The record is a 109-nucleotide RNA from Virgibacillus phasianinus, which matches "SAM riboswitch aptamer (S box leader)" in Rfam. The source organism's lineage runs through Bacteria, Bacillota, Caryophanales, Bacillaceae and Virgibacillus. Gene Ontology term of the family: regulation of gene expression.

[Rfam]
RNA sequence: CUCUUAUCUAGAGCGGUGGAGGGGCUGGCCCUGUGAAACCGCGGCAACCUUCAAACUUAUUGUUUGAAAGGUGCUAACUCCUGCAAAGCAUUGCUUUGACAGAUGAGAG
Number, nucleotide and partner (000 for none) at each position: 001c109002u108003c107004u106005u105006a104007u103008c102009u000010a000011g000012a000013g042014c041015g040016g039017u038018g000019g000020a000021g031022g030023g029024g000025c083026u000027g081028g080029c023030c022031c021032u000033g000034u000035g000036a000037a000038a017039c016040c015041g014042c013043g075044g074045c073046a072047a000048c071049c070050u068051u067052c066053a065054a064055a063056c000057u000058u000059a000060u000061u000062g000063u055064u054065u053066g052067a051068a050069a000070g049071g048072u046073g045074c044075u043076a000077a000078c000079u101080c028081c027082u000083g025084c098085a097086a096087a095088g094089c093090a000091u000092u000093g089094c088095u087096u086097u085098g084099a000100c000101a079102g008103a007104u006105g005106a004107g003108a002109g001